A member of the RNA family "OxyS RNA" from Escherichia coli, 110 nucleotides long.
A reference for the family is Altuvia et al. (1998), "The Escherichia coli OxyS regulatory RNA represses fhlA translation by blocking ribosome binding", EMBO J.
The family's RNA type in Rfam is small RNA.
The organism belongs to Escherichia, within Bacteria.
From the family's description: OxyS is a small untranslated RNA which is induced in response to oxidative stress in Escherichia coli.
RNA sequence: GAAACGGAGCGGCACCUCUUUUAACCCUUGAAGUCACUGCCCGUUUCGAGAGUUUCUCAACUCGAAUAACUAAAGCCAACGUGAACUUUUGCGGAUCUCCAGGAUCCGCU
Numbered sequence: 001g002a003a004a005c006g007g008a009g010c011g012g013c014a015c016c017u018c019u020u021u022u023a024a025c026c027c028u029u030g031a032a033g034u035c036a037c038u039g040c041c042c043g044u045u046u047c048g049a050g051a052g053u054u055u056c057u058c059a060a061c062u063c064g065a066a067u068a069a070c071u072a073a074a075g076c077c078a079a080c081g082u083g084a085a086c087u088u089u090u091g092c093g094g095a096u097c098u099c100c101a102g103g104a105u106c107c108g109c110u
Base pairs, nucleotide, nucleotide: 001047002046003045004044005043006042007041009040010039011038012037014034015033017031018030050063051062052061053060091109092108093107094106095105096104097103